The record is a 126-nucleotide sequence, which matches "LOOT RNA" in Rfam. The sequence is in the family's curated seed alignment.
RNA sequence: AGCCUAAACUUGGUUCUUUAAGCUUGAGAACUAGGCAUGGUGAAAACCGAUGAAGGAUGGAAAACCCAUCAUGGGAAUACCUUCAUCGGUCCUGUCGGGAAACUGGCAGCGGGUAGCCUAGCUACC
Numbered sequence: 001a002g003c004c005u006a007a008a009c010u011u012g013g014u015u016c017u018u019u020a021a022g023c024u025u026g027a028g029a030a031c032u033a034g035g036c037a038u039g040g041u042g043a044a045a046a047c048c049g050a051u052g053a054a055g056g057a058u059g060g061a062a063a064a065c066c067c068a069u070c071a072u073g074g075g076a077a078u079a080c081c082u083u084c085a086u087c088g089g090u091c092c093u094g095u096c097g098g099g100a101a102a103c104u105g106g107c108a109g110c111g112g113g114u115a116g117c118c119u120a121g122c123u124a125c126c
Base pairs, nucleotide, nucleotide: 002041003040004039009035010034011033012032013031014030015029016028017027018026047089048088049087050086051085052084053083054082055081056080062078065075066074067073091111092109093108094107095106096105097104098103112126113125114124115123116122